[Rfam]
RNA sequence: AAGAGACCUCCCAAAAUCUAGUCUGAAGAGGCAAACGCAGGCUGUAAAAAAGCGGGAUGUGGUAUGAACCGCAUCCCGC
Number, nucleotide and partner (000 for none) at each position: 001a000002a000003g000004a000005g043006a000007c041008c040009u039010c000011c000012c000013a000014a000015a000016a000017u000018c000019u000020a000021g032022u031023c030024u029025g000026a000027a000028g000029a024030g023031g022032c021033a000034a000035a000036c000037g000038c000039a009040g008041g007042c000043u005044g000045u000046a000047a000048a000049a000050a000051a000052g079053c078054g077055g076056g000057a000058u073059g072060u071061g070062g069063u068064a000065u000066g000067a000068a063069c062070c061071g060072c059073a058074u000075c000076c055077c054078g053079c052

Rfam assigns this 79-nucleotide sequence from Pseudomonas sp. HPB0071 to the family "Pseudomonas sRNA P31". The base pairs follow the family's consensus structure, which was predicted with CMfinder. Lineage of the source: Bacteria > Pseudomonadati > Pseudomonadota > Pseudomonadales > Pseudomonas.